[Rfam]
The family of this 109-nucleotide RNA from Streptohalobacillus salinus is "PyrR binding site". The base pairs follow the family's consensus structure, which is taken from published work. This family represents the PyrR binding site and terminator structure. This RNA structure is found upstream of a variety of genes involved in pyrimidine biosynthesis and transport. The alignment also includes a portion of the antiterminator structure.
RNA sequence: AAUACCUUUAACGAAGUCCAGAGAGACUUCAAAGGUUGUGAUUGGUGACAUAGGCCGUAAUCGGUCUAUAUGUAUGCCCCUUUGCAGCCUUGCAGAGGGGCAUUUGUUU
Dot-bracket structure: ...((((((...((((((......))))))))))))...........(.((((((((....)))))))).)..(((((((((((((....)))))))))))))......